[Rfam]
RNA sequence: UUUACGGCCGUCUCUAAUUCGCUUGGUGCAGGUCGGGAACUGCUUUUCCCACGACGUCGUUGGGUGAUUUCUGAUGAAUGAUGUUUCUGGUGAAUUGAAGUCCCGCCUUGCAUCAACUGAAUCAGAGGCCGCAGUAAAA
Numbered sequence: 001u002u003u004a005c006g007g008c009c010g011u012c013u014c015u016a017a018u019u020c021g022c023u024u025g026g027u028g029c030a031g032g033u034c035g036g037g038a039a040c041u042g043c044u045u046u047u048c049c050c051a052c053g054a055c056g057u058c059g060u061u062g063g064g065u066g067a068u069u070u071c072u073g074a075u076g077a078a079u080g081a082u083g084u085u086u087c088u089g090g091u092g093a094a095u096u097g098a099a100g101u102c103c104c105g106c107c108u109u110g111c112a113u114c115a116a117c118u119g120a121a122u123c124a125g126a127g128g129c130c131g132c133a134g135u136a137a138a139a
Base pairs, nucleotide, nucleotide: 013126014125017122018121019120020119023116024115025114026113027112028111029110030109031108032107034105035104036103037102038101041097